Rfam assigns this 92-nucleotide RNA sequence from Eragrostis curvula to the family "Small nucleolar RNA R64/Z200 family". By type it is a C/D-box small nucleolar RNA. Taxonomically the source falls in Eragrostis (Eukaryota, Embryophyta, Euphyllophyta, commelinids).
RNA sequence: GAAAUGCGACGAGGAACCAUGAAAACUAUUCGCAUGCCAGACUUCAGAGAUGCAACUGCAUUAAUGAGAAGAUGUUUCAUAUUCUGAGCAUC
Numbered sequence: 001g002a003a004a005u006g007c008g009a010c011g012a013g014g015a016a017c018c019a020u021g022a023a024a025a026c027u028a029u030u031c032g033c034a035u036g037c038c039a040g041a042c043u044u045c046a047g048a049g050a051u052g053c054a055a056c057u058g059c060a061u062u063a064a065u066g067a068g069a070a071g072a073u074g075u076u077u078c079a080u081a082u083u084c085u086g087a088g089c090a091u092c
Stems, first nucleotide, its partner, number of pairs: 004091004049062004